[Rfam]
This 100-nucleotide RNA from Theropithecus gelada belongs to the Rfam family "Y RNA".
From the family's description: Y RNAs are components of the Ro ribonucleoprotein particle (Ro RNP), in association with Ro60 and La proteins. The Y RNAs and Ro60 and La proteins are well conserved, but the function of the Ro RNP is not known.
The family has 104 seed sequences and 26,986 matches in Rfam 15.1.

RNA sequence: UAUUGGUCCGAAGGUAGCAAGUUAUCUCAAUCGAUUCUUCACAGUCAGUUACAGAUCCAGCUCCUUCCCCCUUCUGACUACUGCACUUGACUAGUCUUUA
Numbered sequence: 001u002a003u004u005g006g007u008c009c010g011a012a013g014g015u016a017g018c019a020a021g022u023u024a025u026c027u028c029a030a031u032c033g034a035u036u037c038u039u040c041a042c043a044g045u046c047a048g049u050u051a052c053a054g055a056u057c058c059a060g061c062u063c064c065u066u067c068c069c070c071c072u073u074c075u076g077a078c079u080a081c082u083g084c085a086c087u088u089g090a091c092u093a094g095u096c097u098u099u100a
Stems, first nucleotide, its partner, number of pairs: 002095007010088002014084002016079002020075002033062001035060001